[Rfam]
RNA sequence: AUCUGGGUGAUGAAGAAAAUCAAUCGGAUUCCCAUUGAUUUCCAAUAUGAUUUUAACAACCAGCUACUUCUGACGGAU
Numbered sequence: 001a002u003c004u005g006g007g008u009g010a011u012g013a014a015g016a017a018a019a020u021c022a023a024u025c026g027g028a029u030u031c032c033c034a035u036u037g038a039u040u041u042c043c044a045a046u047a048u049g050a051u052u053u054u055a056a057c058a059a060c061c062a063g064c065u066a067c068u069u070c071u072g073a074c075g076g077a078u
Base pairs, nucleotide, nucleotide: 001078002077003076004075005074
RNA: Small nucleolar RNA R12
Organism: Leersia perrieri